[Rfam]
RNA sequence: CGAUGAGUUAGAGGCUGCAGCUUAUAAAAGUAUGACGGACGAGAUUCAAUGAAAAUUUUUGACUCCCUCAGAAAGGAUAAGUUGCCGAAGUUUGGGUAUAACAUUGUAUACCCACGCUGGCGAUGUUUUCAAAUAGGAACAUCUCUGUCACGUUUUGUAACGUGGGGUGCUAUCUUCGGA
Numbered sequence: 001c002g003a004u005g006a007g008u009u010a011g012a013g014g015c016u017g018c019a020g021c022u023u024a025u026a027a028a029a030g031u032a033u034g035a036c037g038g039a040c041g042a043g044a045u046u047c048a049a050u051g052a053a054a055a056u057u058u059u060u061g062a063c064u065c066c067c068u069c070a071g072a073a074a075g076g077a078u079a080a081g082u083u084g085c086c087g088a089a090g091u092u093u094g095g096g097u098a099u100a101a102c103a104u105u106g107u108a109u110a111c112c113c114a115c116g117c118u119g120g121c122g123a124u125g126u127u128u129u130c131a132a133a134u135a136g137g138a139a140c141a142u143c144u145c146u147g148u149c150a151c152g153u154u155u156u157g158u159a160a161c162g163u164g165g166g167g168u169g170c171u172a173u174c175u176u177c178g179g180a
Stems, first nucleotide, its partner, number of pairs: 006175002009172003017085009033070003037066003089118003093114008119146002122143008148165007

A member of the RNA family "Lysine riboswitch aptamer" from Peribacillus psychrosaccharolyticus, 180 nucleotides long.
The base pairs follow the family's consensus structure, which is taken from published work.
Lineage of the source: Bacteria > Bacillati > Caryophanales > Bacillaceae > Peribacillus.